[Rfam]
RNA sequence: CAAGGUACCUUUUGACCCUACUUAGUUUAACCAAAUGAACUAAAAUUUUAAAGUGACAUAACUUUUUAGAAAACUAGUUCAUUUGUUUGAACUAAGUAUGGUAAAAGGGUACCCUG
Number, nucleotide and partner (000 for none) at each position: 001c000002a115003a000004g113005g112006u111007a110008c109009c108010u107011u106012u105013u104014g000015a102016c101017c100018c000019u098020a097021c096022u095023u094024a093025g092026u091027u090028u089029a088030a087031c000032c085033a084034a083035a082036u081037g080038a079039a078040c077041u076042a075043a000044a000045a000046u000047u000048u000049u000050a000051a000052a000053g000054u000055g000056a000057c000058a000059u000060a000061a000062c000063u000064u000065u000066u000067u000068a000069g000070a000071a000072a000073a000074c000075u042076a041077g040078u039079u038080c037081a036082u035083u034084u033085g032086u000087u030088u029089g028090a027091a026092c025093u024094a023095a022096g021097u020098a019099u000100g017101g016102u015103a000104a013105a012106a011107g010108g009109g008110u007111a006112c005113c004114c000115u002116g000
Rfam assigns this 116-nucleotide RNA from Brachypodium distachyon to the family "MIR5070 microRNA precursor family". The base pairs follow the family's consensus structure, which was predicted with RNAalifold. Rfam links the family to the GO terms miRNA-mediated post-transcriptional gene silencing and RISC complex. Clan: MIR2863 microRNA precursor clan.